[Rfam]
RNA sequence: CCAACGGCUCUUUUAAGAGCCAUCACACUUUCUUAAAAAGUGCUG
Numbered sequence: 001c002c003a004a005c006g007g008c009u010c011u012u013u014u015a016a017g018a019g020c021c022a023u024c025a026c027a028c029u030u031u032c033u034u035a036a037a038a039a040g041u042g043c044u045g
Stems, first nucleotide, its partner, number of pairs: 006021006
A member of the RNA family "Histone 3' UTR stem-loop", 45 nucleotides long. Rfam classes the family as a cis-regulatory element. Gene Ontology term of the family: mRNA 3'-end processing by stem-loop binding and cleavage.